[Rfam]
RNA sequence: GAAGUUAUCGUCUUCGGCCGCAAGCAGGGCGUUGGUAAAGUCUGUGGGGAUGUCGGUGAAGUCGAUGGGCGAGCGGCGCAUUUCACCGAAUUCGGCGAUCAGUUUGGCGUCGCUGCUGUAAACCCGCAGGGGGAUCUGCAGCUGGAUGCUACGAAGCGAUUCGACUGAUGGCAGGCUGGGGCUCAGAUAGAGGAACGCGCCGCUGAGACUGAGUAAUAGUCCACAAAAAACGGCGACACAAGACCAGCAAAAUAACUUCAGCAGACGCAUCAAAAUUUUUAGAUUUCCAGAUAA
Numbered sequence: 001g002a003a004g005u006u007a008u009c010g011u012c013u014u015c016g017g018c019c020g021c022a023a024g025c026a027g028g029g030c031g032u033u034g035g036u037a038a039a040g041u042c043u044g045u046g047g048g049g050a051u052g053u054c055g056g057u058g059a060a061g062u063c064g065a066u067g068g069g070c071g072a073g074c075g076g077c078g079c080a081u082u083u084c085a086c087c088g089a090a091u092u093c094g095g096c097g098a099u100c101a102g103u104u105u106g107g108c109g110u111c112g113c114u115g116c117u118g119u120a121a122a123c124c125c126g127c128a129g130g131g132g133g134a135u136c137u138g139c140a141g142c143u144g145g146a147u148g149c150u151a152c153g154a155a156g157c158g159a160u161u162c163g164a165c166u167g168a169u170g171g172c173a174g175g176c177u178g179g180g181g182c183u184c185a186g187a188u189a190g191a192g193g194a195a196c197g198c199g200c201c202g203c204u205g206a207g208a209c210u211g212a213g214u215a216a217u218a219g220u221c222c223a224c225a226a227a228a229a230a231c232g233g234c235g236a237c238a239c240a241a242g243a244c245c246a247g248c249a250a251a252a253u254a255a256c257u258u259c260a261g262c263a264g265a266c267g268c269a270u271c272a273a274a275a276u277u278u279u280u281a282g283a284u285u286u287c288c289a290g291a292u293a294a
Stems, first nucleotide, its partner, number of pairs: 010172003014168004019163002027043004047084006054078002057075002061070002086095003101160001103158001105155001108148004115142006122135001123133003176290006183283002186279002197268003201264001202262006213239002217235001221232001
anti ponA RNA: a 294-nucleotide RNA from Pseudomonas taeanensis.
The base pairs follow the family's consensus structure, which was predicted with RNAfold.
Lineage of the source: Bacteria > Pseudomonadati > Gammaproteobacteria > Pseudomonadaceae > Pseudomonas taeanensis.
On this family, see Gomez-Lozano et al., BMC Genomics 2014: "Expression of antisense small RNAs in response to stress in Pseudomonas aeruginosa".
Rfam classes the family as an antisense RNA.
From the family's description: Transcribed antisense to the penicillin-binding protein 1A gene called ponA. It was identified by RNAseq and the expression was validated by 5' and 3' RACE experiments. AsponA expression was up or down regulated under different antibiotic stress. Due to its location it may be able to prevent the transcription or translation of the opposite gene. Study by Wurtzel et al. and Ferrara et al. also detected its expression.